[Rfam]
RNA sequence: CUUUAGCUUUGAUGCAAGAGGUUGCGACACGCUCGGUUGCAUUGCCACGCAGCGCGCGUCGGUUUUCUUGUGGAGCUAGCCUAUUAUUUUAAAUAGACGAAAAGGA
Numbered sequence: 001c002u003u004u005a006g007c008u009u010u011g012a013u014g015c016a017a018g019a020g021g022u023u024g025c026g027a028c029a030c031g032c033u034c035g036g037u038u039g040c041a042u043u044g045c046c047a048c049g050c051a052g053c054g055c056g057c058g059u060c061g062g063u064u065u066u067c068u069u070g071u072g073g074a075g076c077u078a079g080c081c082u083a084u085u086a087u088u089u090u091a092a093a094u095a096g097a098c099g100a101a102a103a104g105g106a
Stems, first nucleotide, its partner, number of pairs: 014071003018067004025061004080105003088101003
Shown here is a 106-nucleotide RNA sequence from Streptococcus sp. DD10, a member of the family "S10-Clostridia ribosomal protein leader". The organism belongs to Streptococcus, within Bacteria. Rfam classes the family as a cis-regulatory leader. On this family, see Eckert and Weinberg, BMC Microbiol 2020: "Discovery of 20 novel ribosomal leader candidates in bacteria and archaea".